[Rfam]
RNA: c-di-GMP-I riboswitch aptamer
RNA sequence: CCUCGAUAAUGGCAUACCUAUUGAAAAAUAGGGGCGCAAAGUACUGAGUCUACGGUUUUACACUAUGAUUGUCAGUAUACCGAA
Number, nucleotide and partner (000 for none) at each position: 001c000002c000003u000004c000005g000006a000007u000008a000009a000010u000011g000012g037013c036014a000015u000016a000017c032018c031019u030020a029021u028022u027023g000024a000025a000026a000027a022028a021029u020030a019031g018032g017033g000034g000035c000036g013037c012038a000039a000040a078041g000042u000043a000044c000045u074046g073047a072048g069049u068050c067051u000052a000053c000054g000055g063056u062057u000058u000059u000060a000061c000062a056063c055064u000065a000066u000067g050068a049069u048070u000071g000072u047073c046074a045075g000076u000077a000078u040079a000080c000081c000082g000083a000084a000